Record summary:
Mitochondrion-encoded tmRNA: a 95-nucleotide RNA from Phytophthora katsurae. A reference for the family is Hafez et al. (2013), "A second eukaryotic group with mitochondrion-encoded tmRNA: in silico identification and experimental confirmation", RNA Biol. Rfam links the family to the GO term RNA catabolic process. The source organism's lineage runs through Eukaryota, Oomycota, Peronosporomycetes, Peronosporales and Phytophthora.
[Rfam]
RNA sequence: UAAAUGGACUCAAAGGCAGUAUUUGAUAUUUCCAUUUAUAUUAUUUAUUAAUUAAAAAUUAAUAAAUAAGGGAAUAAAAAUAGAAUUGACAUUUA
Numbered sequence: 001u002a003a004a005u006g007g008a009c010u011c012a013a014a015g016g017c018a019g020u021a022u023u024u025g026a027u028a029u030u031u032c033c034a035u036u037u038a039u040a041u042u043a044u045u046u047a048u049u050a051a052u053u054a055a056a057a058a059u060u061a062a063u064a065a066a067u068a069a070g071g072g073a074a075u076a077a078a079a080a081u082a083g084a085a086u087u088g089a090c091a092u093u094u095a
Stems, first nucleotide, its partner, number of pairs: 001095006010026005027076007